[Rfam]
RNA sequence: GUUGACAUCCUACCCGGCAGCAUUAGAUAUAAAGUAGUACCUCUAAUACUGUCAGGUACGAUGUCAUC
Number, nucleotide and partner (000 for none) at each position: 001g000002u000003u066004g065005a064006c063007a062008u061009c060010c000011u058012a057013c056014c055015c000016g053017g052018c051019a050020g049021c000022a047023u046024u045025a044026g043027a042028u000029a000030u000031a000032a000033a000034g000035u000036a000037g000038u000039a000040c000041c000042u027043c026044u025045a024046a023047u022048a000049c020050u019051g018052u017053c016054a000055g014056g013057u012058a011059c000060g009061a008062u007063g006064u005065c004066a003067u000068c000
Notes: Shown here is a 68-nucleotide sequence from Ceutorhynchus assimilis, a member of the family "mir-8/mir-141/mir-200 microRNA precursor family". The family is grouped with related families in Rfam's "mir-8 microRNA precursor clan". Pairs were carried over by alignment from the consensus structure, which was predicted with RNAalifold. The literature on the family includes a 2003 paper in RNA by Lagos-Quintana et al., "New microRNAs from mouse and human". Lineage of the source: Eukaryota > Bilateria > Hexapoda > Polyphaga > Ceutorhynchus. The family has 164 seed sequences and 2,669 matches in Rfam 15.1.